[Rfam]
RNA sequence: ACCAUCUUUGUCUUGGGGUGAGCUGCUGCUCAAUGAACGCAUAGUGAGAACAGCACUGCUAACAUCACAGACGACACAUACGUGCCACUAGUGUGCAAAUGCUAGAAUGGUACAAUUUUUGGAACC
Number, nucleotide and partner (000 for none) at each position: 001a000002c000003c000004a000005u000006c018007u017008u016009u015010g000011u000012c000013u000014u000015g009016g008017g007018g006019u000020g059021a000022g057023c000024u000025g054026c053027u052028g051029c000030u049031c048032a000033a000034u000035g000036a000037a045038c044039g000040c000041a000042u000043a000044g038045u037046g000047a000048g031049a030050a000051c028052a027053g026054c025055a000056c000057u022058g000059c020060u000061a000062a000063c000064a000065u000066c000067a000068c000069a000070g000071a000072c000073g000074a000075c000076a000077c000078a000079u000080a000081c000082g113083u112084g111085c110086c109087a108088c000089u104090a103091g102092u101093g100094u099095g000096c000097a000098a000099a094100u093101g092102c091103u090104a089105g000106a000107a000108u087109g086110g085111u084112a083113c082114a000115a000116u000117u000118u000119u000120u000121g000122g000123a000124a000125c000126c000